[Rfam]
RNA: rne-II RNA
Organism: Pseudomonas sp. M30-35
RNA sequence: AUACGUGUAAGGUGGAGAUGUACAGCAGCUGGUUUGCGUAGCAAUGAGCUUUAUCAAGACGCCUUAUCUCGUCCGCUACCAUCUGCUGAUUCCUCCUCCUGACUUAGUGCUUACUGUCACAUACAGCGAGCAGGAGACGUCUGUCGCGGCCCAGCACAAUUGGCUGACCGUCGCUCGACAAUGAAACGCCUUACAACCGUUUCUGACGCGCCUAACACCGACUCUGAAAGUCGUGUUUGCCGAACGCCGCUUCCGAUGCAACGGAAACCGA
Numbered sequence: 001a002u003a004c005g006u007g008u009a010a011g012g013u014g015g016a017g018a019u020g021u022a023c024a025g026c027a028g029c030u031g032g033u034u035u036g037c038g039u040a041g042c043a044a045u046g047a048g049c050u051u052u053a054u055c056a057a058g059a060c061g062c063c064u065u066a067u068c069u070c071g072u073c074c075g076c077u078a079c080c081a082u083c084u085g086c087u088g089a090u091u092c093c094u095c096c097u098c099c100u101g102a103c104u105u106a107g108u109g110c111u112u113a114c115u116g117u118c119a120c121a122u123a124c125a126g127c128g129a130g131c132a133g134g135a136g137a138c139g140u141c142u143g144u145c146g147c148g149g150c151c152c153a154g155c156a157c158a159a160u161u162g163g164c165u166g167a168c169c170g171u172c173g174c175u176c177g178a179c180a181a182u183g184a185a186a187c188g189c190c191u192u193a194c195a196a197c198c199g200u201u202u203c204u205g206a207c208g209c210g211c212c213u214a215a216c217a218c219c220g221a222c223u224c225u226g227a228a229a230g231u232c233g234u235g236u237u238u239g240c241c242g243a244a245c246g247c248c249g250c251u252u253c254c255g256a257u258g259c260a261a262c263g264g265a266a267a268c269c270g271a
Stems, first nucleotide, its partner, number of pairs: 014096004023088006030081003036076003040050003058073004097135005138208004143179003146174004152166004183203006215238001217236002219233004249268001251266005